Rfam assigns this 580-nucleotide RNA sequence from Pseudomonas cremoricolorata to the family "rne-II RNA".

[Rfam]
RNA sequence: AUACGUGCAGGGUGGAGAUGCAUAGCCGCCGGACUGUGUAGCAGAUGCCCAGGGUUUGUACGGAAAGUCGUCGAGCGACGAUCAGGCAAGGCGAAAACAGGCGAGGAAGCGGAGUUUGCUGAUUGCAAAUGAGCAUUCCGAGCCUGUUUUCAACGCAGCAUGAUCGUCGCGCAGGCACUUUUCUUCCAAAGCCUACUGGCGUCCACGGCCGACGGUUGAUUCCUCCUCCUGACUGAGUGCACAGGGUUUGUUCGAGACGUCGCCCAGCAACGAUCCGGCGAGUUGGAACCAGGCAACACAACGCGAAUUCGCAGGCCUGCCCUGUGUUUCGGGCCUGGCUUCGACGGAGCCUGAUCGACACGCGAGCACUUAUCGCCCACGCCCCGGCCUGUAGGGUUGAACCCAGGCCAAGUGGCACCACAGCAAUCAGGACGCGUCGUCGCGAUCACGGCAGGCUGGGCAACCGGCUGGUGCCGAAUAUCGCUGGACACGGGGGUAGCUCGCUACCCUUGUCGCACCUUGGCACCGACCAUGGAAAGUCGUGUGUGCCGAACGCCGUUUCCGGCAGCCCGGAAACCGA
Number, nucleotide and partner (000 for none) at each position: 001a000002u000003a000004c000005g000006u000007g000008c000009a000010g000011g000012g000013u000014g226015g225016a224017g223018a000019u000020g000021c000022a000023u218024a217025g216026c215027c214028g213029c000030c211031g210032g209033a000034c000035u000036g206037u205038g204039u000040a000041g000042c000043a000044g000045a000046u000047g000048c000049c000050c000051a000052g000053g000054g000055u000056u000057u000058g000059u000060a000061c000062g000063g000064a000065a000066a000067g000068u000069c000070g000071u000072c000073g000074a000075g000076c000077g000078a000079c000080g000081a000082u000083c000084a000085g000086g000087c000088a000089a000090g000091g000092c000093g000094a000095a000096a000097a000098c000099a000100g000101g000102c000103g000104a000105g000106g000107a000108a000109g000110c000111g000112g000113a000114g000115u000116u000117u000118g000119c000120u000121g000122a000123u000124u000125g000126c000127a000128a000129a000130u000131g000132a000133g000134c000135a000136u000137u000138c000139c000140g000141a000142g000143c000144c000145u000146g000147u000148u000149u000150u000151c000152a000153a000154c000155g000156c000157a000158g000159c000160a000161u000162g000163a000164u000165c000166g000167u000168c000169g000170c000171g000172c000173a000174g000175g000176c000177a000178c000179u000180u000181u000182u000183c000184u000185u000186c000187c000188a000189a000190a000191g000192c000193c000194u000195a000196c000197u000198g000199g000200c000201g000202u000203c000204c038205a037206c036207g000208g000209c032210c031211g030212a000213c028214g027215g026216u025217u024218g023219a000220u000221u000222c000223c017224u016225c015226c014227u432228c431229c430230u429231g428232a000233c000234u000235g000236a000237g000238u000239g000240c000241a000242c000243a000244g000245g000246g000247u000248u000249u000250g000251u000252u000253c000254g000255a000256g000257a000258c000259g000260u000261c000262g000263c000264c000265c000266a000267g000268c000269a000270a000271c000272g000273a000274u000275c000276c000277g000278g000279c000280g000281a000282g000283u000284u000285g000286g000287a000288a000289c000290c000291a000292g000293g000294c000295a000296a000297c000298a000299c000300a000301a000302c000303g000304c000305g000306a000307a000308u000309u000310c000311g000312c000313a000314g000315g000316c000317c000318u000319g000320c000321c000322c000323u000324g000325u000326g000327u000328u000329u000330c000331g000332g000333g000334c000335c000336u000337g000338g000339c000340u000341u000342c000343g000344a000345c000346g000347g000348a000349g000350c000351c000352u000353g000354a000355u000356c000357g000358a000359c000360a000361c000362g000363c000364g000365a000366g000367c000368a000369c000370u000371u000372a000373u000374c000375g000376c000377c000378c000379a000380c000381g000382c000383c000384c000385c000386g000387g000388c000389c000390u000391g000392u000393a000394g000395g000396g000397u000398u000399g000400a000401a000402c000403c000404c000405a000406g000407g000408c000409c000410a000411a000412g000413u000414g000415g000416c000417a000418c000419c000420a000421c000422a000423g000424c000425a000426a000427u000428c231429a230430g229431g228432a227433c000434g000435c515436g514437u000438c512439g489440u488441c487442g484443c483444g482445a481446u000447c000448a000449c476450g475451g474452c473453a000454g469455g468456c467457u466458g465459g464460g000461c000462a000463a000464c459465c458466g457467g456468c455469u454470g000471g000472u000473g452474c451475c450476g449477a000478a000479u000480a000481u445482c444483g443484c442485u000486g000487g441488a440489c439490a000491c000492g000493g510494g509495g508496g507497u506498a505499g504500c000501u000502c000503g000504c499505u498506a497507c496508c495509c494510u493511u000512g438513u000514c436515g435516c000517a000518c000519c000520u000521u000522g000523g547524c546525a545526c544527c542528g541529a540530c539531c000532a000533u000534g000535g000536a000537a000538a000539g530540u529541c528542g527543u000544g526545u525546g524547u523548g000549c000550c000551g000552a000553a000554c000555g000556c000557c000558g577559u576560u575561u574562c573563c572564g571565g000566c000567a000568g000569c000570c000571c564572g563573g562574a561575a560576a559577c558578c000579g000580a000